[Rfam]
RNA: int-alpA RNA
RNA sequence: GCCACGGCUAGGCCGGCCAGCCGAAAGCGGGAGACCUUCACCCGUUGCCAUGGCUCCCUAUGAGGG
Numbered sequence: 001g002c003c004a005c006g007g008c009u010a011g012g013c014c015g016g017c018c019a020g021c022c023g024a025a026a027g028c029g030g031g032a033g034a035c036c037u038u039c040a041c042c043c044g045u046u047g048c049c050a051u052g053g054c055u056c057c058c059u060a061u062g063a064g065g066g
Stems, first nucleotide, its partner, number of pairs: 001054004006049003011022003027045005035066005